[Rfam]
RNA sequence: AAGGGCUUAGCUUAAUUAAAGUGGCUGAUUUGCGUUCAGUUGAUGCAGAGUGGGGUUUUGCAGUCCUUA
Numbered sequence: 001a002a003g004g005g006c007u008u009a010g011c012u013u014a015a016u017u018a019a020a021g022u023g024g025c026u027g028a029u030u031u032g033c034g035u036u037c038a039g040u041u042g043a044u045g046c047a048g049a050g051u052g053g054g055g056u057u058u059u060g061c062a063g064u065c066c067u068u069a
Stems, first nucleotide, its partner, number of pairs: 001068007010022004024040005045061005
RNA: tRNA